Shown here is a 118-nucleotide RNA from Parafrankia colletiae, a member of the family "Glycine riboswitch aptamer". Lineage of the source: Bacteria > Bacillati > Actinomycetota > Actinomycetes > Parafrankia.
[Rfam]
RNA sequence: CGACUCUGAAAAGCGGACGCUCCGGCGUCCCGCCGACGGUGCAAGCCGACUCCGUGCUUCCGGUUCCCCCGGGAGCACUGCCGGUCGGCGAAGCUCUCAGGCCGAUGACAGAGGGGGA
Numbered sequence: 001c002g003a004c005u006c007u008g009a010a011a012a013g014c015g016g017a018c019g020c021u022c023c024g025g026c027g028u029c030c031c032g033c034c035g036a037c038g039g040u041g042c043a044a045g046c047c048g049a050c051u052c053c054g055u056g057c058u059u060c061c062g063g064u065u066c067c068c069c070c071g072g073g074a075g076c077a078c079u080g081c082c083g084g085u086c087g088g089c090g091a092a093g094c095u096c097u098c099a100g101g102c103c104g105a106u107g108a109c110a111g112a113g114g115g116g117g118a
Base pairs, nucleotide, nucleotide: 001116004113005112006111007110008109015030016029017028018027032102033101034100035098036097039096041094045089046088047087048086049085050084051083
A search with the family's covariance model found it, with a score of 36 bits.
Rfam describes the family as follows. This family represents the bacterial glycine riboswitch. Glycine riboswitches usually consist of two metabolite-binding aptamers domains with similar structures in tandem.